Background
Shown here is a 45-nucleotide RNA sequence from Orbus hercynius, a member of the family "PreQ1 (pre queuosine) riboswitch aptamer". The match comes from Rfam's covariance-model search (46 bits). Rfam describes the family as follows. This family is a bacterial riboswitch that binds to the metabolite preQ1, an intermediate in the biosynthesis of the modified nucleoside queuosine from GTP. One example of this riboswitch is located in the leader of the Bacillus subtilis ykvJKLM (queCDEF) operon which encodes four genes necessary for queuosine production. PreQ1 binding to the riboswitch aptamer is thought to induce premature transcription termination within the leader to down-regulate expression of these genes.
RNA sequence: UGAUCUGUGGUUCGUAAUCCCCCCACAUAAAAAAACUAAGGAACA
Numbered sequence: 001u002g003a004u005c006u007g008u009g010g011u012u013c014g015u016a017a018u019c020c021c022c023c024c025a026c027a028u029a030a031a032a033a034a035a036c037u038a039a040g041g042a043a044c045a
Base pairs, nucleotide, nucleotide: 006027007026008025009024010023015038016037